The family of this 76-nucleotide sequence is "Small nucleolar RNA U2-19". A reference for the family is Tycowski et al. (2004), "Guide RNAs with 5' Caps and Novel Box C/D snoRNA-like Domains for Modification of snRNAs in Metazoa", Curr Biol. Rfam classes the family as a C/D-box small nucleolar RNA. Rfam 15.1 lists 1,147 matches to the family in 531 species.
RNA sequence: AAUGAUGAAAAUAGCCAAAUCUGAGCAUCAGAAGACCUUUCAGUCUACCUGAUGCAUGAUCUCUGUAGUUCUGAGA
Numbered sequence: 001a002a003u004g005a006u007g008a009a010a011a012u013a014g015c016c017a018a019a020u021c022u023g024a025g026c027a028u029c030a031g032a033a034g035a036c037c038u039u040u041c042a043g044u045c046u047a048c049c050u051g052a053u054g055c056a057u058g059a060u061c062u063c064u065g066u067a068g069u070u071c072u073g074a075g076a
Stems, first nucleotide, its partner, number of pairs: 025055005033046004